[Rfam]
RNA sequence: AGAUGAGAGAUGCACCCCGCCCACAGGGGACUGUGGGCGGCAUCAGGACGGGGCCUCCCCAGCUUCGCCCUGGUCGUGCCUUCGCGCACACAACCGGAGCCUUGUGUUCCGGGUCUCCUCACCGAUCGGA
Numbered sequence: 001a002g003a004u005g006a007g008a009g010a011u012g013c014a015c016c017c018c019g020c021c022c023a024c025a026g027g028g029g030a031c032u033g034u035g036g037g038c039g040g041c042a043u044c045a046g047g048a049c050g051g052g053g054c055c056u057c058c059c060c061a062g063c064u065u066c067g068c069c070c071u072g073g074u075c076g077u078g079c080c081u082u083c084g085c086g087c088a089c090a091c092a093a094c095c096g097g098a099g100c101c102u103u104g105u106g107u108u109c110c111g112g113g114u115c116u117c118c119u120c121a122c123c124g125a126u127c128g129g130a
Stems, first nucleotide, its partner, number of pairs: 004121004009117002017040010042074006049067006076089004094112006101106001122129002
Notes:
A member of the RNA family "Streptomyces RNA 5676" from Streptomyces dioscori, 130 nucleotides long. Identified by deep sequencing of transcriptome at the end of exponential growth phase. Appears longer on northern blot than sequencing transcript. This indicates processing step. Streptomyces specific. A reference for the family is Vockenhuber et al. (2011), "Deep sequencing-based identification of small non-coding RNAs in Streptomyces coelicolor", RNA Biol. Pairs were carried over by alignment from the consensus structure. It is annotated as a small RNA.